[Rfam]
RNA sequence: AACUAGAGAUCGCCGAAUCCGCGCGCCCCGCGCGGAACCGGGGAACCAGCGAGGACCCGGUGAUCACCUGACUCUCCCGAUCACCACGCAACACCCACCGGGUCCUCUGGGGUGAAUCGGCCUGUCAGCCCCUCCCGACAGGCCGUAGGGCGGCUUCCACGCCCGAGUCCGUCAGCUAACCCGGUAGGCGCAUGGAAGCAAGGAG
Numbered sequence: 001a002a003c004u005a006g007a008g009a010u011c012g013c014c015g016a017a018u019c020c021g022c023g024c025g026c027c028c029c030g031c032g033c034g035g036a037a038c039c040g041g042g043g044a045a046c047c048a049g050c051g052a053g054g055a056c057c058c059g060g061u062g063a064u065c066a067c068c069u070g071a072c073u074c075u076c077c078c079g080a081u082c083a084c085c086a087c088g089c090a091a092c093a094c095c096c097a098c099c100g101g102g103u104c105c106u107c108u109g110g111g112g113u114g115a116a117u118c119g120g121c122c123u124g125u126c127a128g129c130c131c132c133u134c135c136c137g138a139c140a141g142g143c144c145g146u147a148g149g150g151c152g153g154c155u156u157c158c159a160c161g162c163c164c165g166a167g168u169c170c171g172u173c174a175g176c177u178a179a180c181c182c183g184g185u186a187g188g189c190g191c192a193u194g195g196a197a198g199c200a201a202g203g204a205g
Stems, first nucleotide, its partner, number of pairs: 011190004018036008037185006047109002110170003118145009148164004

Background: The record is a 205-nucleotide RNA from Herbidospora galbida, which matches "c-di-AMP riboswitch aptamer (ydaO/yuaA leader)" in Rfam. The match comes from Rfam's covariance-model search (73 bits).